[Rfam]
RNA sequence: UGAUGUUCUCGGGGCGGGGCGUAAUUCCCCACCGGCGGUGAUGUCGUUAUUGCUUCGCUUGCGAAACAGGAAUGACGAGCCCGCGAGCGCUUGCCUGACCAUUGUGUUUACCGCAAUGACCAGGCAAGGUCAGCAGAUCUGGUGAGAUGCCAGAGCCGACGGUCAUAGUCCGGAUAAAAGAGAACGGGA
Numbered sequence: 001u002g003a004u005g006u007u008c009u010c011g012g013g014g015c016g017g018g019g020c021g022u023a024a025u026u027c028c029c030c031a032c033c034g035g036c037g038g039u040g041a042u043g044u045c046g047u048u049a050u051u052g053c054u055u056c057g058c059u060u061g062c063g064a065a066a067c068a069g070g071a072a073u074g075a076c077g078a079g080c081c082c083g084c085g086a087g088c089g090c091u092u093g094c095c096u097g098a099c100c101a102u103u104g105u106g107u108u109u110a111c112c113g114c115a116a117u118g119a120c121c122a123g124g125c126a127a128g129g130u131c132a133g134c135a136g137a138u139c140u141g142g143u144g145a146g147a148u149g150c151c152a153g154a155g156c157c158g159a160c161g162g163u164c165a166u167a168g169u170c171c172g173g174a175u176a177a178a179a180g181a182g183a184a185c186g187g188g189a
Stems, first nucleotide, its partner, number of pairs: 004186007017029003031169002033158002035084004087134002138154005160172003